[Rfam]
Background: Rhizobiales sRNA Atu_At1: a 108-nucleotide RNA from Pseudochrobactrum saccharolyticum. Rfam classes the family as a small RNA. The match comes from Rfam's covariance-model search (94 bits). A reference for the family is Wilms et al. (2012), "Deep sequencing uncovers numerous small RNAs on all four replicons of the plant pathogen Agrobacterium tumefaciens", RNA Biol.
RNA sequence: GCGGUGGCCGUGUCAACCGAACAUGAUGGUAAUGAAAAACACUUUGAUUUUUUCGGUUUCUCAUUGUGGCCAACGAAAUGGCAGACGAGUUUCUAUCCCAUCCGGCUA
Numbered sequence: 001g002c003g004g005u006g007g008c009c010g011u012g013u014c015a016a017c018c019g020a021a022c023a024u025g026a027u028g029g030u031a032a033u034g035a036a037a038a039a040c041a042c043u044u045u046g047a048u049u050u051u052u053u054c055g056g057u058u059u060c061u062c063a064u065u066g067u068g069g070c071c072a073a074c075g076a077a078a079u080g081g082c083a084g085a086c087g088a089g090u091u092u093c094u095a096u097c098c099c100a101u102c103c104g105g106c107u108a
Base pairs, nucleotide, nucleotide: 006107007106008105009104011023012022013021025102026101027100028099029098034093035092036091037090040068041067042066045063046062069082070081071080